Source information
Shown here is a 142-nucleotide sequence from Priestia megaterium, a member of the family "c-di-AMP riboswitch aptamer (ydaO/yuaA leader)". A reference for the family is Barrick et al. (2004), "New RNA motifs suggest an expanded scope for riboswitches in bacterial genetic control", Proc Natl Acad Sci U S A. Taxonomically the source falls in Priestia megaterium (Bacteria, Bacillota, Caryophanales, Priestia).
RNA sequence: GACCUGUUAUCGCUUAAUUCGUCAGAAGUGGGGGACCCAAAUUUGUGCAUUGUCACUUGGGGUGAAUCCUUUUUUUAAAGGUAGGGCUACUCUCAUAGCCCGAAUCCGACAGCUAACCCCAUAAGCGUUUUGGAGAGGAGGU
Numbered sequence: 001g002a003c004c005u006g007u008u009a010u011c012g013c014u015u016a017a018u019u020c021g022u023c024a025g026a027a028g029u030g031g032g033g034g035a036c037c038c039a040a041a042u043u044u045g046u047g048c049a050u051u052g053u054c055a056c057u058u059g060g061g062g063u064g065a066a067u068c069c070u071u072u073u074u075u076u077a078a079a080g081g082u083a084g085g086g087c088u089a090c091u092c093u094c095a096u097a098g099c100c101c102g103a104a105u106c107c108g109a110c111a112g113c114u115a116a117c118c119c120c121a122u123a124a125g126c127g128u129u130u131u132g133g134a135g136a137g138g139a140g141g142u
Stems, first nucleotide, its partner, number of pairs: 011127004018027003028122006038059002060107003068081004084101004